[Rfam]
RNA sequence: CGGGGGCAGCAGCCUCCCCGCAUCAAAGACGCAUUUCGCGUCCAAGGCUUGC
Numbered sequence: 001c002g003g004g005g006g007c008a009g010c011a012g013c014c015u016c017c018c019c020g021c022a023u024c025a026a027a028g029a030c031g032c033a034u035u036u037c038g039c040g041u042c043c044a045a046g047g048c049u050u051g052c
Stems, first nucleotide, its partner, number of pairs: 001020006009052004028042005
RNA: chrB-b RNA